[Rfam]
RNA: Small nucleolar RNA Z103
Organism: Cannabis sativa
RNA sequence: AUGGAAUUGAUGACUUUUUCCCCAGAUGAUCGAAGUUGAUUAUACUGAGCGCAUUAUUAAUCUCUUUCGAGAGACCAAGCCAAUAUUCUGAUCCAU
Numbered sequence: 001a002u003g004g005a006a007u008u009g010a011u012g013a014c015u016u017u018u019u020c021c022c023c024a025g026a027u028g029a030u031c032g033a034a035g036u037u038g039a040u041u042a043u044a045c046u047g048a049g050c051g052c053a054u055u056a057u058u059a060a061u062c063u064c065u066u067u068c069g070a071g072a073g074a075c076c077a078a079g080c081c082a083a084u085a086u087u088c089u090g091a092u093c094c095a096u
Stems, first nucleotide, its partner, number of pairs: 001096005